[Rfam]
RNA: mir-71 microRNA precursor family
Organism: Operophtera brumata
RNA sequence: GCUUCGUGAAAGACAUGAGUGGUGAGAUGUCUACGACAUCACUAAUUCUCACUACCUUGUCUUUCAUGCUGAU
Numbered sequence: 001g002c003u004u005c006g007u008g009a010a011a012g013a014c015a016u017g018a019g020u021g022g023u024g025a026g027a028u029g030u031c032u033a034c035g036a037c038a039u040c041a042c043u044a045a046u047u048c049u050c051a052c053u054a055c056c057u058u059g060u061c062u063u064u065c066a067u068g069c070u071g072a073u
Base pairs, nucleotide, nucleotide: 008065009064010063011062012061013060014059015058017057019055021053022052023051024050025049026048027047
Dot-bracket structure: .......((((((((.(.(.(((((((...................))))))).).)))))))))........